[Rfam]
RNA sequence: CUCACUGACCCCAUGGCAAGCCAUGGGGGUUGAAAGACACCCUCAUUGUUUGGCAGGACAGCUUUGGCCGUUGUCAGUGAGUAGCCUUGGUGAAUAUUGUCCUCGGACAAUACGAACUCCGUUGUUGAUGUCAUCAUACCUUAGGAUAUCGUUCUAGUCCUAAGCUCUGUGGUUCUGCUUUAAAAGCUUGCUCGGGAUAACAGGCGGUGAGCAGGACGUAAAAAGCAUUUACAACAUUGGUGAAGGAUACCUUAC
Numbered sequence: 001c002u003c004a005c006u007g008a009c010c011c012c013a014u015g016g017c018a019a020g021c022c023a024u025g026g027g028g029g030u031u032g033a034a035a036g037a038c039a040c041c042c043u044c045a046u047u048g049u050u051u052g053g054c055a056g057g058a059c060a061g062c063u064u065u066g067g068c069c070g071u072u073g074u075c076a077g078u079g080a081g082u083a084g085c086c087u088u089g090g091u092g093a094a095u096a097u098u099g100u101c102c103u104c105g106g107a108c109a110a111u112a113c114g115a116a117c118u119c120c121g122u123u124g125u126u127g128a129u130g131u132c133a134u135c136a137u138a139c140c141u142u143a144g145g146a147u148a149u150c151g152u153u154c155u156a157g158u159c160c161u162a163a164g165c166u167c168u169g170u171g172g173u174u175c176u177g178c179u180u181u182a183a184a185a186g187c188u189u190g191c192u193c194g195g196g197a198u199a200a201c202a203g204g205c206g207g208u209g210a211g212c213a214g215g216a217c218g219u220a221a222a223a224a225g226c227a228u229u230u231a232c233a234a235c236a237u238u239g240g241u242g243a244a245g246g247a248u249a250c251c252u253u254a255c
Base pairs, nucleotide, nucleotide: 001081002080003079004078005077006076007075008074010028011027012025013024015022016021029041031039032038084241085240086239089118090117091116121235122234123233124232125231127229128228129227130226131225136170137169140164141163142162143161144160145159146158147157151248152247153246154245155244172217173216174215175214176213177212178211179210180209184208186205187204188203189202190201192199
The family of this 255-nucleotide RNA from Erysipelotrichaceae bacterium RD49 is "HNH endonuclease-associated RNA and ORF (HEARO) RNA". Rfam 15.1 lists 952 matches to the family in 249 species. It is annotated as a non-coding RNA gene.